[Rfam]
RNA sequence: GGAGGAUUUUGGCCCUCCGUCAUCGGCCGGUAGGGGCAGGUGACAAAUCGCCAUAGCGCUGCAUUGUUAAAGAGCCUUUGUGGUGAGCGGCUAUGGAGAAGGCACGCGUGCGGUGCAAGU
Numbered sequence: 001g002g003a004g005g006a007u008u009u010u011g012g013c014c015c016u017c018c019g020u021c022a023u024c025g026g027c028c029g030g031u032a033g034g035g036g037c038a039g040g041u042g043a044c045a046a047a048u049c050g051c052c053a054u055a056g057c058g059c060u061g062c063a064u065u066g067u068u069a070a071a072g073a074g075c076c077u078u079u080g081u082g083g084u085g086a087g088c089g090g091c092u093a094u095g096g097a098g099a100a101g102g103c104a105c106g107c108g109u110g111c112g113g114u115g116c117a118a119g120u
Stems, first nucleotide, its partner, number of pairs: 001018005019044006026037003051096002054093004058084002061081003066076001068074001104120002
The record is a 120-nucleotide sequence from Anaerohalosphaera lusitana, which matches "Group II catalytic intron D1-D4-2" in Rfam. A search with the family's covariance model found it, with a score of 72 bits. The base pairs follow the family's consensus structure. NCBI's taxonomy places the organism under Bacteria, Pseudomonadati, Planctomycetota, Anaerohalosphaeraceae, Anaerohalosphaera. Group II introns are found in rRNA, tRNA and mRNA of organelles in fungi, plants and protists, and also in mRNA in bacteria.